Shown here is a 364-nucleotide sequence from Mesorhizobium denitrificans, a member of the family "Alphaproteobacteria transfer-messenger RNA". Bacterial tmRNA, also known as 10Sa RNA or SsrA, is named for its dual tRNA and mRNA-like properties. Its role is to liberate the mRNA from a stalled ribosome. To accomplish this part of the tmRNA is used as a reading frame that ends in a translation stop signal. A search with the family's covariance model found it, with a score of 311 bits. Lineage of the source: Bacteria > Pseudomonadati > Pseudomonadota > Phyllobacteriaceae > Mesorhizobium. For this family Rfam cites "Phylogenetic analysis of tmRNA secondary structure" (Williams and Bartel, RNA, 1996).
RNA sequence: ACGCUUUUCUUUUUGUCUGUGCAUGCCUAUAUGUGCCGCGUCAGCUUGCCUGACUAUGGCGAUAAACGGCCGAUGAAAUAAGCCAUUCGGACCCGGGGGCGGUACCCGGCGCCUCCACCACAAACCGCAGCGACAUUGUGCGCUGCGGCUUGUGAUGGGGGCGAAAUAGGAUCGACGAGGGUGUAAAGAUCGGACUUUUGCCCGGCAUAGUACCACCGUUAUCGGGCUAAACUUAUAGUUGCAAACGACAACUAUGCUGAGGCACGUCUCGCUGCUUAAUGCGGCGCGAUAGUCUCGAAUAAAGCCCUGUGGGUUAGCACCUUCAGGCGGGGUUCGGAGGUACCUGGCAACAGAAACCUCCACU
Numbered sequence: 001a002c003g004c005u006u007u008u009c010u011u012u013u014u015g016u017c018u019g020u021g022c023a024u025g026c027c028u029a030u031a032u033g034u035g036c037c038g039c040g041u042c043a044g045c046u047u048g049c050c051u052g053a054c055u056a057u058g059g060c061g062a063u064a065a066a067c068g069g070c071c072g073a074u075g076a077a078a079u080a081a082g083c084c085a086u087u088c089g090g091a092c093c094c095g096g097g098g099g100c101g102g103u104a105c106c107c108g109g110c111g112c113c114u115c116c117a118c119c120a121c122a123a124a125c126c127g128c129a130g131c132g133a134c135a136u137u138g139u140g141c142g143c144u145g146c147g148g149c150u151u152g153u154g155a156u157g158g159g160g161g162c163g164a165a166a167u168a169g170g171a172u173c174g175a176c177g178a179g180g181g182u183g184u185a186a187a188g189a190u191c192g193g194a195c196u197u198u199u200g201c202c203c204g205g206c207a208u209a210g211u212a213c214c215a216c217c218g219u220u221a222u223c224g225g226g227c228u229a230a231a232c233u234u235a236u237a238g239u240u241g242c243a244a245a246c247g248a249c250a251a252c253u254a255u256g257c258u259g260a261g262g263c264a265c266g267u268c269u270c271g272c273u274g275c276u277u278a279a280u281g282c283g284g285c286g287c288g289a290u291a292g293u294c295u296c297g298a299a300u301a302a303a304g305c306c307c308u309g310u311g312g313g314u315u316a317g318c319a320c321c322u323u324c325a326g327g328c329g330g331g332g333u334u335c336g337g338a339g340g341u342a343c344c345u346g347g348c349a350a351c352a353g354a355a356a357c358c359u360c361c362a363c364u
Base pairs, nucleotide, nucleotide: 040054041053042052043051044050058202059201060200061199062198068195070193071192072191073190074189083181084180087178088177089176093109094108095107096106097105110163111162112161113160114159115158116157203218204217205216208229209228210227213225214224330345331344332343333342336361337360338359339358340357341356
Dot-bracket structure: .......................................(((((.....)))))...(((((.....(.(((((........((..(((...(((((.......)))))(((((((........................................)))))))............))).)).......))))).)..)))))[[[..(((..((.]]].....)).)))....................................................................................................[[[[..((((((]]]]..........))))))...